[Rfam]
RNA sequence: CUUGCAAACCUCCAUAGCAGAAGCGCUCACAGCGUGACUGUGUCAGAUUUCAGUGAAUCUGCGAAUUCUGCU
Number, nucleotide and partner (000 for none) at each position: 001c000002u000003u000004g000005c000006a000007a000008a000009c000010c000011u000012c000013c036014a000015u000016a072017g071018c070019a069020g068021a067022a066023g035024c034025g033026c000027u000028c000029a000030c000031a000032g000033c025034g024035u023036g013037a000038c000039u000040g000041u000042g000043u000044c061045a060046g059047a058048u057049u056050u055051c000052a000053g000054u000055g050056a049057a048058u047059c046060u045061g044062c000063g000064a000065a000066u022067u021068c020069u019070g018071c017072u016
The record is a 72-nucleotide sequence from Crocodylus porosus, which matches "Mammalian CPEB3 ribozyme" in Rfam. The source organism's lineage runs through Eukaryota, Opisthokonta, Gnathostomata, Dipnotetrapodomorpha and Crocodylus. The mammalian CPEB3 ribozyme is a self cleaving RNA located in the second intron of the CPEB3 gene which belongs to a family of genes regulating messenger RNA polyadenylation.